[Rfam]
RNA sequence: AGGGUGUGCCUUUCAGGCAUCCUCUCCCAAUCUUUUGACAGCCCGAUCCAUAGUGAUCGGGCUUUUUUCUUGCCGCCC
Number, nucleotide and partner (000 for none) at each position: 001a000002g000003g000004g000005u000006g000007u000008g018009c017010c016011u015012u000013u000014c000015a011016g010017g009018c008019a000020u000021c000022c000023u000024c000025u000026c000027c000028c000029a000030a000031u000032c000033u000034u000035u000036u000037g000038a000039c000040a063041g062042c061043c060044c059045g058046a057047u056048c055049c000050a000051u000052a000053g000054u000055g048056a047057u046058c045059g044060g043061g042062c041063u040064u000065u000066u000067u000068u000069c000070u000071u000072g000073c000074c000075g000076c000077c000078c000